A member of the RNA family "Mammalian CPEB3 ribozyme" from Alligator mississippiensis, 78 nucleotides long.
Lineage of the source: Eukaryota > Euteleostomi > Archelosauria > Crocodylia > Alligator.
Pairs were carried over by alignment from the consensus structure, which is taken from published work.
From the family's description: The mammalian CPEB3 ribozyme is a self cleaving RNA located in the second intron of the CPEB3 gene which belongs to a family of genes regulating messenger RNA polyadenylation. This ribozyme is highly conserved and found only in mammals. The CPEB3 ribozyme is structurally and biochemically related to the human hepatitis delta virus (HDV) ribozyme and the HDV ribozyme is proposed to have arisen from the human transcriptome.
It scores 54 bits against the family's covariance model.

[Rfam]
RNA sequence: GGUUGUGAGCUUGAGGCUGCAGCAGAAGCACUCACGAUGCGGCCCUGGUCAGAUUCCAAUGAAUCUGUGAAUUUGGCU
Numbered sequence: 001g002g003u004u005g006u007g008a009g010c011u012u013g014a015g016g017c018u019g020c021a022g023c024a025g026a027a028g029c030a031c032u033c034a035c036g037a038u039g040c041g042g043c044c045c046u047g048g049u050c051a052g053a054u055u056c057c058a059a060u061g062a063a064u065c066u067g068u069g070a071a072u073u074u075g076g077c078u
Stems, first nucleotide, its partner, number of pairs: 013046001015044004021078003025074003028040003050067007